[Rfam]
RNA: Small nucleolar RNA ACA64
Nucleotides: 120
Base pairs, nucleotide, nucleotide: 006050008048010045014041015040016039021034022033023032024031065113067111068110071109078106079105081103085098086097087096
Number, partner (000 for none) and nucleotide at each position: 001000a002000c003000a004000g005000u006050c007000u008048g009000a010045a011000a012000a013000u014041c015040a016039c017000u018000u019000a020000g021034g022033g023032u024031c025000u026000c027000c028000u029000g030000u031024g032023g033022c034021c035000c036000c037000u038000g039016g040015u041014g042000c043000g044000a045010u046000a047000a048008c049000u050006g051000u052000g053000c054000c055000a056000a057000c058000a059000g060000c061000a062000g063000u064000g065113g066000g067111g068110g069000c070000a071109u072000u073000a074000a075000a076000c077000u078106c079105a080000u081103u082000a083000c084000c085098c086097a087096c088000g089000g090000u091000a092000a093000a094000u095000u096087g097086u098085g099000g100000g101000g102000a103081g104000c105079u106078g107000c108000c109071a110068c111067c112000c113065c114000a115000a116000a117000a118000c119000a120000u